Burkholderia RNA 11: a 122-nucleotide RNA sequence from Paraburkholderia sp. DHOC27. Rfam links the family to the GO term protein binding. Rfam classes the family as a small RNA. For this family Rfam cites "Experimental identification of small non-coding regulatory RNAs in the opportunistic human pathogen Burkholderia cenocepacia J2315" (Ramos et al., Genomics, 2013). Rfam describes the family as follows. Co-purified with Hfq, expression confirmed by Northern blot. Predicted target marZ. Overlaps coding sequence.
[Rfam]
RNA sequence: GCAAUCUGCGGAUUGCCCGUGAAAAUCGCACGGUGUUCCUGAGCCUGCUCGGCAUCUCGUGGCUGUGGUUCGUGGGCGCGACGUUUCUGUCGUCGUUCUUCCGCUUUGCGAAGGAUGUGCUG
Number, nucleotide and partner (000 for none) at each position: 001g000002c000003a000004a000005u000006c000007u000008g000009c000010g049011g048012a000013u000014u000015g044016c000017c000018c041019g040020u000021g038022a037023a036024a000025a034026u033027c000028g000029c000030a000031c000032g000033g026034u025035g000036u023037u022038c021039c000040u019041g018042a000043g000044c015045c000046u000047g000048c011049u010050c000051g121052g120053c119054a118055u117056c000057u115058c114059g000060u112061g000062g000063c000064u000065g000066u000067g099068g098069u000070u000071c095072g094073u000074g000075g091076g090077c089078g088079c000080g087081a086082c000083g000084u000085u000086u081087c080088u078089g077090u076091c075092g000093u000094c072095g071096u000097u000098c068099u067100u000101c000102c000103g000104c000105u000106u000107u000108g000109c000110g000111a000112a060113g000114g058115a057116u000117g055118u054119g053120c052121u051122g000